[Rfam]
RNA sequence: AGUCGGGCAAGAUGUCGGCCUGCAAUCUCCAGGCUGCCUGAUUUGGGAUCUGCUUUCCCUUGACCACGGAUGUACUGGCACUGUCGAGAGCAUGAGACCAAGCGAGGUCAGGCAUUUUUUGCCUGGCCUUUUUUAUU
Numbered sequence: 001a002g003u004c005g006g007g008c009a010a011g012a013u014g015u016c017g018g019c020c021u022g023c024a025a026u027c028u029c030c031a032g033g034c035u036g037c038c039u040g041a042u043u044u045g046g047g048a049u050c051u052g053c054u055u056u057c058c059c060u061u062g063a064c065c066a067c068g069g070a071u072g073u074a075c076u077g078g079c080a081c082u083g084u085c086g087a088g089a090g091c092a093u094g095a096g097a098c099c100a101a102g103c104g105a106g107g108u109c110a111g112g113c114a115u116u117u118u119u120u121g122c123c124u125g126g127c128c129u130u131u132u133u134u135a136u137u
Stems, first nucleotide, its partner, number of pairs: 003046004008040002016036005049095002051092005058083001061080002064078003097136001100134003104130008113121002

The family of this 137-nucleotide RNA sequence from Rhizobium subbaraonis is "Alphaproteobacterial sRNA ar35".
It scores 48 bits against the family's covariance model.